[Rfam]
RNA sequence: AAAGUUCUUCGGGGUUGGGUGAAAUUCCCUACCGGCGGUAUAGUCCGCGACCCGUAUGUGCUGAAAAUGGCGGAGAAUAAGCCAGCAGGAAGCACAGCGGCUGAUUUGGUGCGAUUCCAAAACCGACAGUACAGUCUGGAUGAGAGAAGAAAAGA
Numbered sequence: 001a002a003a004g005u006u007c008u009u010c011g012g013g014g015u016u017g018g019g020u021g022a023a024a025u026u027c028c029c030u031a032c033c034g035g036c037g038g039u040a041u042a043g044u045c046c047g048c049g050a051c052c053c054g055u056a057u058g059u060g061c062u063g064a065a066a067a068u069g070g071c072g073g074a075g076a077a078u079a080a081g082c083c084a085g086c087a088g089g090a091a092g093c094a095c096a097g098c099g100g101c102u103g104a105u106u107u108g109g110u111g112c113g114a115u116u117c118c119a120a121a122a123c124c125g126a127c128a129g130u131a132c133a134g135u136c137u138g139g140a141u142g143a144g145a146g147a148a149g150a151a152a153a154g155a
Stems, first nucleotide, its partner, number of pairs: 005151006017029003031135002033125002035048004043123002052100004105121005127138003